RNA sequence: AUAAAUCUUCGAGGCAGGGUGAGAGUCCCUACCGGCGGUAUUAGCCCGCAAGCCGAAAGGUUGAUCUGGUGUGAUUCCAGAGCCGACAGUGAAAGUCUGGAUGGGAGAAGAUUCGU
Numbered sequence: 001a002u003a004a005a006u007c008u009u010c011g012a013g014g015c016a017g018g019g020u021g022a023g024a025g026u027c028c029c030u031a032c033c034g035g036c037g038g039u040a041u042u043a044g045c046c047c048g049c050a051a052g053c054c055g056a057a058a059g060g061u062u063g064a065u066c067u068g069g070u071g072u073g074a075u076u077c078c079a080g081a082g083c084c085g086a087c088a089g090u091g092a093a094a095g096u097c098u099g100g101a102u103g104g105g106a107g108a109a110g111a112u113u114c115g116u
Base pairs, nucleotide, nucleotide: 004113005112006111007110008109009108010107017029018028019027031096032095033085034084035049036048037047038046044083045082052061053060054059065081066080067079068078069077087099088098089097
This 116-nucleotide sequence from Turicibacter sp. HGF1 belongs to the Rfam family "FMN riboswitch aptamer (RFN element)". The RFN element is a highly conserved domain that is found frequently in the 5'-untranslated regions of prokaryotic mRNAs that encode for flavin mononucleotide (FMN) biosynthesis and transport proteins. Taxonomically the source falls in Turicibacter (Bacteria, Bacillati, Bacillota, Erysipelotrichia). The family's consensus secondary structure is taken from published work.